[Rfam]
RNA sequence: GUGCGGCUAUGAAGUAGGAGGUUGCGACACACCCGGUUGCAUUGCCACGCAACCUAUGUCGGUUUUCCUAUGGAGCUAAGCCUAUUUUCAAAAUAGACGAAGGAGGUA
Numbered sequence: 001g002u003g004c005g006g007c008u009a010u011g012a013a014g015u016a017g018g019a020g021g022u023u024g025c026g027a028c029a030c031a032c033c034c035g036g037u038u039g040c041a042u043u044g045c046c047a048c049g050c051a052a053c054c055u056a057u058g059u060c061g062g063u064u065u066u067c068c069u070a071u072g073g074a075g076c077u078a079a080g081c082c083u084a085u086u087u088u089c090a091a092a093a094u095a096g097a098c099g100a101a102g103g104a105g106g107u108a
Stems, first nucleotide, its partner, number of pairs: 014071003018067004025061005080107004087102002

Shown here is a 108-nucleotide RNA sequence from Pilibacter termitis, a member of the family "S10-Clostridia ribosomal protein leader". For this family Rfam cites "Discovery of 20 novel ribosomal leader candidates in bacteria and archaea" (Eckert and Weinberg, BMC Microbiol, 2020). It is annotated as a cis-regulatory leader.